[Rfam]
RNA sequence: GCGCCAUUAGCUCAGUUGGUUAGAGCGGCUGACUCUUAAUCAGUAGGUCCGGGGUUCGAGUCCCUGAUGGCGCA
Numbered sequence: 001g002c003g004c005c006a007u008u009a010g011c012u013c014a015g016u017u018g019g020u021u022a023g024a025g026c027g028g029c030u031g032a033c034u035c036u037u038a039a040u041c042a043g044u045a046g047g048u049c050c051g052g053g054g055u056u057c058g059a060g061u062c063c064c065u066g067a068u069g070g071c072g073c074a
Stems, first nucleotide, its partner, number of pairs: 001073007010026004028044005050066005
RNA: tRNA
Organism: Brachybacterium vulturis